The record is a 75-nucleotide RNA sequence from Streptomyces phaeofaciens, which matches "ASpks TB sRNA" in Rfam. For this family Rfam cites "Identification of small RNAs in Mycobacterium tuberculosis" (Arnvig and Young, Mol Microbiol, 2009). Rfam classes the family as an antisense RNA. A search with the family's covariance model found it, with a score of 81 bits. Lineage of the source: Bacteria > Bacillati > Actinomycetota > Kitasatosporales > Streptomyces.
RNA sequence: CUUGAGCGAGCCGAGCCAGAGCGGGCGGUCCUCGGCCCUGUCCUGGCCGUACGUGGCCAGCAGCGCCUGUGCCUC
Numbered sequence: 001c002u003u004g005a006g007c008g009a010g011c012c013g014a015g016c017c018a019g020a021g022c023g024g025g026c027g028g029u030c031c032u033c034g035g036c037c038c039u040g041u042c043c044u045g046g047c048c049g050u051a052c053g054u055g056g057c058c059a060g061c062a063g064c065g066c067c068u069g070u071g072c073c074u075c
Stems, first nucleotide, its partner, number of pairs: 016024002031071001033069001038065001043060003047056003
Dot-bracket structure: ...............((.....))......(.(....(....(((.(((....))).)))....)...).)....